RNA: t44 RNA
Organism: endosymbiont of Escarpia spicata
RNA sequence: GCGGGAGCAAAACUAAUCCACACAUACAUCGGCACAUGGUUCGGGGUGCCUCCCAGCUUUCGCGGGGAGGUCGAUUCAUGGGAUGUAUGGAGGCCUAAC
Numbered sequence: 001g002c003g004g005g006a007g008c009a010a011a012a013c014u015a016a017u018c019c020a021c022a023c024a025u026a027c028a029u030c031g032g033c034a035c036a037u038g039g040u041u042c043g044g045g046g047u048g049c050c051u052c053c054c055a056g057c058u059u060u061c062g063c064g065g066g067g068a069g070g071u072c073g074a075u076u077c078a079u080g081g082g083a084u085g086u087a088u089g090g091a092g093g094c095c096u097a098a099c
Stems, first nucleotide, its partner, number of pairs: 023089008035080005041074003048071007